[Rfam]
RNA: Purine riboswitch aptamer
RNA sequence: AAAUAAUGCUCGAUUAGUACUUAUAUAUACCCAUAAUAUGGUUGGGAGUCUCUACGUGAAACCUUAAAUUUCACGCUAUAAGUAAAAGUUACUGUAAU
Numbered sequence: 001a002a003a004u005a006a007u008g009c010u011c012g013a014u015u016a017g018u019a020c021u022u023a024u025a026u027a028u029a030c031c032c033a034u035a036a037u038a039u040g041g042u043u044g045g046g047a048g049u050c051u052c053u054a055c056g057u058g059a060a061a062c063c064u065u066a067a068a069u070u071u072c073a074c075g076c077u078a079u080a081a082g083u084a085a086a087a088g089u090u091a092c093u094g095u096a097a098u
Stems, first nucleotide, its partner, number of pairs: 018084008030046004056074006